[Rfam]
BsrG: a 276-nucleotide sequence. The match comes from Rfam's covariance-model search (124 bits). The family's RNA type in Rfam is small RNA. Pairs were carried over by alignment from the consensus structure, which was predicted with WAR.

RNA sequence: UGUACAUAGACUCGGCUCUCUCAAGGGUGGUCGGCUCACCUCGCUUUACCCUAUCUAUAGGGAAGGGGGUGAGAAUAUGACGGUAUAUGAGGCAAUUUCAUUAAUGAUAGCUUUUGGCAUGCUGAUAAUUGCCCUACUGUCCUUCCCUAGACGGAAAUAGACCUCCCUUGAGCUAACGACCCUGGGAAGUCCAUUUCUUCAGUAAGUCCUUUUGAGCCACCCCUUUGAAGGGAUAGUCUAUUGUACACAAACCGUAAGAUGUUACCGCAUCUUACG
Numbered sequence: 001u002g003u004a005c006a007u008a009g010a011c012u013c014g015g016c017u018c019u020c021u022c023a024a025g026g027g028u029g030g031u032c033g034g035c036u037c038a039c040c041u042c043g044c045u046u047u048a049c050c051c052u053a054u055c056u057a058u059a060g061g062g063a064a065g066g067g068g069g070u071g072a073g074a075a076u077a078u079g080a081c082g083g084u085a086u087a088u089g090a091g092g093c094a095a096u097u098u099c100a101u102u103a104a105u106g107a108u109a110g111c112u113u114u115u116g117g118c119a120u121g122c123u124g125a126u127a128a129u130u131g132c133c134c135u136a137c138u139g140u141c142c143u144u145c146c147c148u149a150g151a152c153g154g155a156a157a158u159a160g161a162c163c164u165c166c167c168u169u170g171a172g173c174u175a176a177c178g179a180c181c182c183u184g185g186g187a188a189g190u191c192c193a194u195u196u197c198u199u200c201a202g203u204a205a206g207u208c209c210u211u212u213u214g215a216g217c218c219a220c221c222c223c224u225u226u227g228a229a230g231g232g233a234u235a236g237u238c239u240a241u242u243g244u245a246c247a248c249a250a251a252c253c254g255u256a257a258g259a260u261g262u263u264a265c266c267g268c269a270u271c272u273u274a275c276g
Base pairs, nucleotide, nucleotide: 001247002246003245004244005243007240008239009238011236014218015217016216017215018214020172021171022170023169024168025167026166027165029162031160036072037071038070040069041068042067079141080140081139082138083137084136085135093106094105116133117132118131119130182202183201184200221232222231223230253276254275255274256273257272258271259270260269261268262267
About the family: bsrE, bsrG and bsrH pair through intermolecular interactions with antisense sRNAs. They form type I toxin/antitoxin system that includes an mRNA encoding for a short, toxic peptide (bsrE, bsrG and bsrH) and an antitoxin that is comprised of an antisense RNA. bsrG encodes a 39-amino-acid toxin, and the 180 nucleotide antisense sRNA called SR4 acts as the antitoxin (they overlap by 123 nucleotides). SR4 interaction with the 3'UTR of bsrG RNA promotes bsrG degradation and inhibits its translation. The family has 6 seed sequences and 614 matches in Rfam 15.1.